Shown here is a 67-nucleotide RNA sequence from Fukomys damarensis, a member of the family "Small nucleolar RNA SNORD109A".
NCBI's taxonomy places the organism under Eukaryota, Deuterostomia, Sarcopterygii, Amniota, Fukomys.
By type it is a C/D-box small nucleolar RNA.
Humans have two copies of the SNORD109 gene, SNORD109A and SNORD109B.
RNA sequence: GGAUCGAUGAAGGGAACACUUCCCUGAGGACGCUGAGGGACUCGUUUCAGAUGUCAAUCUGAGGUCC
Numbered sequence: 001g002g003a004u005c006g007a008u009g010a011a012g013g014g015a016a017c018a019c020u021u022c023c024c025u026g027a028g029g030a031c032g033c034u035g036a037g038g039g040a041c042u043c044g045u046u047u048c049a050g051a052u053g054u055c056a057a058u059c060u061g062a063g064g065u066c067c
Stems, first nucleotide, its partner, number of pairs: 001067005